[Rfam]
RNA sequence: CUCCACAGCUACUGGUCUGGAACUGUUCAGAACUGUAGCAGUUGCAGGAUUCCCUCUGUGGAAGAUAAACUGUUACAUGGUAUUGAACUCCUCGGGUCAUCUUCUGGGGAGGACUUUCUGUGUAACUAACAGUG
Numbered sequence: 001c002u003c004c005a006c007a008g009c010u011a012c013u014g015g016u017c018u019g020g021a022a023c024u025g026u027u028c029a030g031a032a033c034u035g036u037a038g039c040a041g042u043u044g045c046a047g048g049a050u051u052c053c054c055u056c057u058g059u060g061g062a063a064g065a066u067a068a069a070c071u072g073u074u075a076c077a078u079g080g081u082a083u084u085g086a087a088c089u090c091c092u093c094g095g096g097u098c099a100u101c102u103u104c105u106g107g108g109g110a111g112g113a114c115u116u117u118c119u120g121u122g123u124a125a126c127u128a129a130c131a132g133u134g
Stems, first nucleotide, its partner, number of pairs: 003061004017047003021043005075123005089113005